A member of the RNA family "DUF805b RNA", 36 nucleotides long. The family's consensus secondary structure is taken from published work. The sequence is in the family's curated seed alignment.
RNA sequence: AGCGCGGCAGCCGAAAAGCGUUUAACAGAGUAGGCG
Number, nucleotide and partner (000 for none) at each position: 001a000002g021003c020004g019005c018006g000007g000008c000009a000010g035011c034012c033013g000014a000015a000016a000017a000018g005019c004020g003021u002022u000023u000024a000025a000026c000027a000028g000029a000030g000031u000032a000033g012034g011035c010036g000